Notes:
Shown here is a 139-nucleotide RNA sequence from Planifilum fulgidum, a member of the family "Ribosomal protein L10 leader". This family is a putative r-protein leader autoregulatory structure found in B. subtilis and other low-GC Gram-positive bacteria. It is located in the 5' untranslated regions of mRNAs encoding ribosomal proteins L10 and L12 (rplJ-rplL). A Rho-independent transcription terminator structure that is probably involved in regulation is included at the 3' end. Lineage of the source: Bacteria > Bacillati > Bacillota > Thermoactinomycetaceae > Planifilum. Gene Ontology term of the family: regulation of gene expression.
RNA sequence: UCGAACAGAGACUGCAUGCCGUAGACAGCAGGUGCGCAGACCGCGCUUAAUAUCCUGCCGAGGCGGGUGACGUUCCUUAUGGGAACGCUUUGCGAUUUCCCGGCCUUCGUGUGUCUGCGAAGGUUUUUUUCAUUUCCAA
Numbered sequence: 001u002c003g004a005a006c007a008g009a010g011a012c013u014g015c016a017u018g019c020c021g022u023a024g025a026c027a028g029c030a031g032g033u034g035c036g037c038a039g040a041c042c043g044c045g046c047u048u049a050a051u052a053u054c055c056u057g058c059c060g061a062g063g064c065g066g067g068u069g070a071c072g073u074u075c076c077u078u079a080u081g082g083g084a085a086c087g088c089u090u091u092g093c094g095a096u097u098u099c100c101c102g103g104c105c106u107u108c109g110u111g112u113g114u115c116u117g118c119g120a121a122g123g124u125u126u127u128u129u130u131c132a133u134u135u136c137c138a139a
Base pairs, nucleotide, nucleotide: 028058029057030056031055032054034046035045036044102125103124104123105122106121107120108119109118110117111116
It is annotated as a cis-regulatory leader.